[Rfam]
RNA: tRNA
RNA sequence: GGCGCGGUAGUUCAAUGGAUAGAAUAGAAGUUUCCUAAACUUUAGAUCAGGGUUCGAUUCCCUGCCGUGCUA
Numbered sequence: 001g002g003c004g005c006g007g008u009a010g011u012u013c014a015a016u017g018g019a020u021a022g023a024a025u026a027g028a029a030g031u032u033u034c035c036u037a038a039a040c041u042u043u044a045g046a047u048c049a050g051g052g053u054u055c056g057a058u059u060c061c062c063u064g065c066c067g068u069g070c071u072a
Stems, first nucleotide, its partner, number of pairs: 001071007010025004027043005048064005